The family of this 150-nucleotide RNA from Mustela putorius is "U12 minor spliceosomal RNA". Lineage of the source: Eukaryota > Bilateria > Euteleostomi > Mammalia > Mustela putorius. It is annotated as a spliceosomal small nuclear RNA. The match comes from Rfam's covariance-model search (95 bits).
[Rfam]
RNA sequence: AUGCCUUAAAUUUAUGAGUAAGGAAAAUUAUGAUUCUAGGUGAUAUCCAAAUUCUCAUUGCUAAUAUGAGACAAAUUUUUGAGUGGGUCAACUUAUUCCCUAAGGCAACUUGCAUACUUUGUGAGAUGCCUGGGAGCGGCCAUCUGCCUG
Numbered sequence: 001a002u003g004c005c006u007u008a009a010a011u012u013u014a015u016g017a018g019u020a021a022g023g024a025a026a027a028u029u030a031u032g033a034u035u036c037u038a039g040g041u042g043a044u045a046u047c048c049a050a051a052u053u054c055u056c057a058u059u060g061c062u063a064a065u066a067u068g069a070g071a072c073a074a075a076u077u078u079u080u081g082a083g084u085g086g087g088u089c090a091a092c093u094u095a096u097u098c099c100c101u102a103a104g105g106c107a108a109c110u111u112g113c114a115u116a117c118u119u120u121g122u123g124a125g126a127u128g129c130c131u132g133g134g135a136g137c138g139g140c141c142a143u144c145u146g147c148c149u150g
Stems, first nucleotide, its partner, number of pairs: 004023005032053004039046001054070005084150005091145001094142001097139001100134002103131005109125005